Guanidine-I riboswitch aptamer: a 105-nucleotide sequence from Halopseudomonas pachastrellae. About the family: This family represents a conserved RNA structure found upstream of the ykkC and yxkD genes in Bacillus subtilis and related genes in other bacteria. The function of this family is unclear although it has been suggested that it may function to switch on efflux pumps and detoxification systems in response to harmful environmental molecules. It scores 85 bits against the family's covariance model.

RNA sequence: ACUCAGGCGAACUAGGGUUCCGGCUUGCGCAGCAAGUGUCUGGUCCGAGAGUUUUCCGGCUCUCAAGGAAUGAGGGCUACACGGCGGGAUAAAAGCCCGGGAGAC
Numbered sequence: 001a002c003u004c005a006g007g008c009g010a011a012c013u014a015g016g017g018u019u020c021c022g023g024c025u026u027g028c029g030c031a032g033c034a035a036g037u038g039u040c041u042g043g044u045c046c047g048a049g050a051g052u053u054u055u056c057c058g059g060c061u062c063u064c065a066a067g068g069a070a071u072g073a074g075g076g077c078u079a080c081a082c083g084g085c086g087g088g089a090u091a092a093a094a095g096c097c098c099g100g101g102a103g104a105c
Stems, first nucleotide, its partner, number of pairs: 007056001009054004015046002020043002022040001023037006058078008080100001082103001086098003